The record is a 363-nucleotide sequence, which matches "Bacterial RNase P class A" in Rfam. It is annotated as a ribozyme. Pairs were carried over by alignment from the consensus structure, which is taken from published work. For this family Rfam cites "Ribonuclease P: unity and diversity in a tRNA processing ribozyme" (Frank and Pace, Annu Rev Biochem, 1998).
[Rfam]
RNA sequence: UGAGUUGGGUAGGUGAUCGCGUUCCGAGAGAUCGGGAUGAGGAAAGUCCGGACUCCGCAGGGCGGGAUGCUGGGUAACCCCCAGGAGCGGCGACGCUAUGGAAAGUGCAACAGAAAGCAGACUACAACGCCUCUGCGUUGUACAGGUGAAACGGUGCGGUAAAAGCGCACCAGUUCCGAUGGAGACAUCGGAAGCUCGGUAAACCCCAUCUGGAGCAAGGUCAAAUUGAGGAAGGUGCGCCCGUCUAGUCCUCAGGUUGGCUGCUUGAGGUUGAUGGUAACAUCAAUCCUAGAUGAAUGAUCACCGCCCUGAUGCGCGAGAGCAAUUCGGGGAACAGAAACCGGCUUAUUCCCAACUCAAGCC
Numbered sequence: 001u002g003a004g005u006u007g008g009g010u011a012g013g014u015g016a017u018c019g020c021g022u023u024c025c026g027a028g029a030g031a032u033c034g035g036g037a038u039g040a041g042g043a044a045a046g047u048c049c050g051g052a053c054u055c056c057g058c059a060g061g062g063c064g065g066g067a068u069g070c071u072g073g074g075u076a077a078c079c080c081c082c083a084g085g086a087g088c089g090g091c092g093a094c095g096c097u098a099u100g101g102a103a104a105g106u107g108c109a110a111c112a113g114a115a116a117g118c119a120g121a122c123u124a125c126a127a128c129g130c131c132u133c134u135g136c137g138u139u140g141u142a143c144a145g146g147u148g149a150a151a152c153g154g155u156g157c158g159g160u161a162a163a164a165g166c167g168c169a170c171c172a173g174u175u176c177c178g179a180u181g182g183a184g185a186c187a188u189c190g191g192a193a194g195c196u197c198g199g200u201a202a203a204c205c206c207c208a209u210c211u212g213g214a215g216c217a218a219g220g221u222c223a224a225a226u227u228g229a230g231g232a233a234g235g236u237g238c239g240c241c242c243g244u245c246u247a248g249u250c251c252u253c254a255g256g257u258u259g260g261c262u263g264c265u266u267g268a269g270g271u272u273g274a275u276g277g278u279a280a281c282a283u284c285a286a287u288c289c290u291a292g293a294u295g296a297a298u299g300a301u302c303a304c305c306g307c308c309c310u311g312a313u314g315c316g317c318g319a320g321a322g323c324a325a326u327u328c329g330g331g332g333a334a335c336a337g338a339a340a341c342c343g344g345c346u347u348a349u350u351c352c353c354a355a356c357u358c359a360a361g362c363c
Stems, first nucleotide, its partner, number of pairs: 001359009011349001012305007020039008044347003048344004053215004060242004065211005070084005085099001086097004100206002105204002107200002122145002124141007153171006173195001174193008219262004228253005269288008